TD-1 RNA: a 112-nucleotide RNA sequence from Treponema vincentii. Lineage of the source: Bacteria > Pseudomonadati > Spirochaetota > Spirochaetia > Treponema vincentii. For this family Rfam cites "Identification of 22 candidate structured RNAs in bacteria using the CMfinder comparative genomics pipeline" (Weinberg et al., Nucleic Acids Res, 2007). It is annotated as a cis-regulatory element. The base pairs follow the family's consensus structure, which is taken from published work. It scores 67 bits against the family's covariance model.
RNA sequence: AAAACACUGCGAGUUUGCCGUGCGGCAAACAUCACUGAUUAUAUGUGCGCUUUUCGCGCACGAAUUCGCCUGCCGCCAAAAUUGAUAUUUUGUUCGGCUGUCGAAUUUAUGG
Numbered sequence: 001a002a003a004a005c006a007c008u009g010c011g012a013g014u015u016u017g018c019c020g021u022g023c024g025g026c027a028a029a030c031a032u033c034a035c036u037g038a039u040u041a042u043a044u045g046u047g048c049g050c051u052u053u054u055c056g057c058g059c060a061c062g063a064a065u066u067c068g069c070c071u072g073c074c075g076c077c078a079a080a081a082u083u084g085a086u087a088u089u090u091u092g093u094u095c096g097g098c099u100g101u102c103g104a105a106u107u108u109a110u111g112g
Stems, first nucleotide, its partner, number of pairs: 011033002013030007045061006064106005070100001072098003077092006